[Rfam]
RNA: L31-Actinobacteria ribosomal protein leader
RNA sequence: GCGGUACCGGUUCACGUCAAGUACUGGCGACCCGGCGACC
Numbered sequence: 001g002c003g004g005u006a007c008c009g010g011u012u013c014a015c016g017u018c019a020a021g022u023a024c025u026g027g028c029g030a031c032c033c034g035g036c037g038a039c040c
Stems, first nucleotide, its partner, number of pairs: 003040003007035004015029005
Dot-bracket structure: ..(((.((((....(((((.....)))))..))))..)))